[Rfam]
RNA sequence: GCCACUGUAGCUCAGUCGGUAGAGCAACUGAUUCGUAAUCAGUAGGUCAGCGGUUCGAUUCCGCUCAGUGGCU
Numbered sequence: 001g002c003c004a005c006u007g008u009a010g011c012u013c014a015g016u017c018g019g020u021a022g023a024g025c026a027a028c029u030g031a032u033u034c035g036u037a038a039u040c041a042g043u044a045g046g047u048c049a050g051c052g053g054u055u056c057g058a059u060u061c062c063g064c065u066c067a068g069u070g071g072c073u
Stems, first nucleotide, its partner, number of pairs: 001072007010025004027043005049065005
A member of the RNA family "tRNA" from a Solemya velesiana gill symbiont, 73 nucleotides long. Clan: tRNA clan. A reference for the family is Hou (1993), "The tertiary structure of tRNA and the development of the genetic code", Trends Biochem Sci. Rfam classes the family as a transfer RNA. About the family: Transfer RNA (tRNA) molecules are approximately 80 nucleotides in length.